[Rfam]
RNA sequence: GAACAGUAGCUGGUUGACUUCGGGUCAAAUCGACAAAUAUUUGCAAAGAUAUUUCCUUUGAGAAAUCAUUUGGUCCCCUUCAACCAGCUGUGGACG
Numbered sequence: 001g002a003a004c005a006g007u008a009g010c011u012g013g014u015u016g017a018c019u020u021c022g023g024g025u026c027a028a029a030u031c032g033a034c035a036a037a038u039a040u041u042u043g044c045a046a047a048g049a050u051a052u053u054u055c056c057u058u059u060g061a062g063a064a065a066u067c068a069u070u071u072g073g074u075c076c077c078c079u080u081c082a083a084c085c086a087g088c089u090g091u092g093g094a095c096g
Stems, first nucleotide, its partner, number of pairs: 004093001006091001008089010022076009